[Rfam]
RNA sequence: GGCGUGUUCCGGGGUCGGUGUGAUUCCGAACCGGCGGUGACAGCCCGCGAACCUCGCACCCGCGAGGCCGAAUCGGUGAAAUUCCGGUGCCGACGGUGAUGGGCGCGAGCCCUAGUCCGGAUGAGAGGAACGCUGA
Numbered sequence: 001g002g003c004g005u006g007u008u009c010c011g012g013g014g015u016c017g018g019u020g021u022g023a024u025u026c027c028g029a030a031c032c033g034g035c036g037g038u039g040a041c042a043g044c045c046c047g048c049g050a051a052c053c054u055c056g057c058a059c060c061c062g063c064g065a066g067g068c069c070g071a072a073u074c075g076g077u078g079a080a081a082u083u084c085c086g087g088u089g090c091c092g093a094c095g096g097u098g099a100u101g102g103g104c105g106c107g108a109g110c111c112c113u114a115g116u117c118c119g120g121a122u123g124a125g126a127g128g129a130a131c132g133c134u135g136a
Stems, first nucleotide, its partner, number of pairs: 004133007016028003032092002034048004043090002052067002072088005094119003
Dot-bracket structure: ...(((((((.....(((.......)))...((((((.....[[))))...((............))....(((((.......)))))]])).(((....................))).......)))))))...
The family of this 136-nucleotide sequence from Leucobacter sp. UCD-THU is "FMN riboswitch aptamer (RFN element)". The match comes from Rfam's covariance-model search (78 bits).